[Rfam]
RNA: TD-1 RNA
Organism: Treponema maltophilum
RNA sequence: UUUUUAUCGCGAGUUUGCACGGCAAAGCUCGCAUAUUAUAUGUGCGUGCAUCCGCACGCACGGAUAAAAACUUUUUCGGAAGCUGACGCUUUCUGCAAAAGUUUUUAUGGGA
Numbered sequence: 001u002u003u004u005u006a007u008c009g010c011g012a013g014u015u016u017g018c019a020c021g022g023c024a025a026a027g028c029u030c031g032c033a034u035a036u037u038a039u040a041u042g043u044g045c046g047u048g049c050a051u052c053c054g055c056a057c058g059c060a061c062g063g064a065u066a067a068a069a070a071c072u073u074u075u076u077c078g079g080a081a082g083c084u085g086a087c088g089c090u091u092u093c094u095g096c097a098a099a100a101g102u103u104u105u106u107a108u109g110g111g112a
Stems, first nucleotide, its partner, number of pairs: 011030002014026005042061008065107011078093006